A member of the RNA family "Streptomyces RNA 1601" from Streptomyces sp. NRRL WC-3605, 208 nucleotides long. It is annotated as a small RNA. It scores 184 bits against the family's covariance model. Rfam describes the family as follows. Identified by deep sequencing of transcriptome at the end of exponential growth phase. Appears longer on northern blot than sequencing transcript. Streptomyces specific.
RNA sequence: AACGACCGGCUGGAGACUCAUGUCACCAGCCCACAAGUGGAGGCUCCGAUCUCCCACCUGACCGUCCCCCGGGACGGCGGGUCACCCGGUCAGGCGGCCACCAUCGUUCCGUACGGACGAUGGAGCCGCCCGAAUGGCGCCCCGCGGUAUCGCGGCGGUGCUCCGGAAGUGCUUGGAGCCCCGCCUGUGAUCGUCCGGGGCAUUUUUU
Numbered sequence: 001a002a003c004g005a006c007c008g009g010c011u012g013g014a015g016a017c018u019c020a021u022g023u024c025a026c027c028a029g030c031c032c033a034c035a036a037g038u039g040g041a042g043g044c045u046c047c048g049a050u051c052u053c054c055c056a057c058c059u060g061a062c063c064g065u066c067c068c069c070c071g072g073g074a075c076g077g078c079g080g081g082u083c084a085c086c087c088g089g090u091c092a093g094g095c096g097g098c099c100a101c102c103a104u105c106g107u108u109c110c111g112u113a114c115g116g117a118c119g120a121u122g123g124a125g126c127c128g129c130c131c132g133a134a135u136g137g138c139g140c141c142c143c144g145c146g147g148u149a150u151c152g153c154g155g156c157g158g159u160g161c162u163c164c165g166g167a168a169g170u171g172c173u174u175g176g177a178g179c180c181c182c183g184c185c186u187g188u189g190a191u192c193g194u195c196c197g198g199g200g201c202a203u204u205u206u207u208u
Stems, first nucleotide, its partner, number of pairs: 004091006012027002029082004034060002037057004041052002062077006093130005101123008139201006145193003151189003154185005160179005